[Rfam]
RNA sequence: CUCUUAUUAAGAGCGGCGGAGGGAUUAGGCCCUAUGAUGCCCGGCAACCUUUCAAGGGAACCUUGAAGCUGGUGCCAAUUCCUACAGACGUAACUGUCUGGAAGAUAAGAG
Numbered sequence: 001c002u003c004u005u006a007u008u009a010a011g012a013g014c015g016g017c018g019g020a021g022g023g024a025u026u027a028g029g030c031c032c033u034a035u036g037a038u039g040c041c042c043g044g045c046a047a048c049c050u051u052u053c054a055a056g057g058g059a060a061c062c063u064u065g066a067a068g069c070u071g072g073u074g075c076c077a078a079u080u081c082c083u084a085c086a087g088a089c090g091u092a093a094c095u096g097u098c099u100g101g102a103a104g105a106u107a108a109g110a111g
Stems, first nucleotide, its partner, number of pairs: 001111008013042001015041003021032003026084004043076004048072002050068006080103001085100006
The record is a 111-nucleotide sequence from Guptibacillus hwajinpoensis, which matches "SAM riboswitch aptamer (S box leader)" in Rfam. Its family is annotated with regulation of gene expression in the Gene Ontology.